[Rfam]
RNA sequence: CACCCUAAACGACAGCGCUUAACGGCGAAUACCGAACUUGGAACAGGGGUCGGUGACGUGCGGGAAGGGGAAGCAGAGGGCCAAGUGUCGGGGGACGCUUGGCCCUCAUUUU
Numbered sequence: 001c002a003c004c005c006u007a008a009a010c011g012a013c014a015g016c017g018c019u020u021a022a023c024g025g026c027g028a029a030u031a032c033c034g035a036a037c038u039u040g041g042a043a044c045a046g047g048g049g050u051c052g053g054u055g056a057c058g059u060g061c062g063g064g065a066a067g068g069g070g071a072a073g074c075a076g077a078g079g080g081c082c083a084a085g086u087g088u089c090g091g092g093g094g095a096c097g098c099u100u101g102g103c104c105c106u107c108a109u110u111u112u
Stems, first nucleotide, its partner, number of pairs: 003069004010062002012059002016027004030055006038047002076107014
Dot-bracket structure: ..((((...((((..((((....))))..((((((..((......))..))))))..)).))...))))......((((((((((((((....)))))))))))))).....